The family of this 114-nucleotide sequence from Dioscorea zingiberensis is "MIR394 microRNA precursor family". For this family Rfam cites "Computational identification of plant microRNAs and their targets, including a stress-induced miRNA" (Jones-Rhoades and Bartel, Mol Cell, 2004). Lineage of the source: Eukaryota > Viridiplantae > Tracheophyta > Euphyllophyta > Dioscorea.
RNA sequence: CCCACAGAGGUUAUUGGCAUUCUGUCCACCUCCAACCUUGUAUCUGUAUAAGAGGGAAGGGAAGUGGUGUAAAAAGAGAUGGAGGUGGGCAUACUGCCAACAGAUCUCUGUUGG
Numbered sequence: 001c002c003c004a005c006a007g008a009g010g011u012u013a014u015u016g017g018c019a020u021u022c023u024g025u026c027c028a029c030c031u032c033c034a035a036c037c038u039u040g041u042a043u044c045u046g047u048a049u050a051a052g053a054g055g056g057a058a059g060g061g062a063a064g065u066g067g068u069g070u071a072a073a074a075a076g077a078g079a080u081g082g083a084g085g086u087g088g089g090c091a092u093a094c095u096g097c098c099a100a101c102a103g104a105u106c107u108c109u110g111u112u113g114g
Stems, first nucleotide, its partner, number of pairs: 011104001014100006023091011